Shown here is an 87-nucleotide RNA from Deinococcus ficus, a member of the family "ZMP/ZTP riboswitch aptamer (pfl RNA motif)". The family's consensus secondary structure is taken from published work. It scores 49 bits against the family's covariance model. On this family, see Jones and Ferre-D'Amare, Nat Struct Mol Biol 2015: "Recognition of the bacterial alarmone ZMP through long-distance association of two RNA subdomains".
[Rfam]
RNA sequence: CGAGUGAACGGCGACUGGCGCUAGCGUGGGCGAACCACGGGGAAGCCGUUCAGGACAGGGAAGUGAUCGCGCGCCUGGGUCGGACAC
Numbered sequence: 001c002g003a004g005u006g007a008a009c010g011g012c013g014a015c016u017g018g019c020g021c022u023a024g025c026g027u028g029g030g031c032g033a034a035c036c037a038c039g040g041g042g043a044a045g046c047c048g049u050u051c052a053g054g055a056c057a058g059g060g061a062a063g064u065g066a067u068c069g070c071g072c073g074c075c076u077g078g079g080u081c082g083g084a085c086a087c
Stems, first nucleotide, its partner, number of pairs: 005052008015042002017075005026038004064082005